The family of this 172-nucleotide RNA from Noviherbaspirillum saxi is "Group II catalytic intron D1-D4-3".
Pairs were carried over by alignment from the consensus structure.

RNA sequence: UCGCGGGCGACUGUGAAUCUGAAGGAAGCCGAAGGCAAAGCGCUGGCCUGACGAACAGGAAGCGGAUAGGAGGCAACGCAGCCGGGUAAGACGUCAUCUACCGUCGAAGCCCGAAACUUGUCCGGAAGGCUGCGGGGUAGAUCCGACAGGCAUAAGCGUGAAGGUGGGUGCG
Dot-bracket structure: ((((((....)))))).............((...((...(((((.(((((............(((((.....((..(((((((((((..((((........))))...))))...............)))))))..))..))))).)))))...)))))....))...))..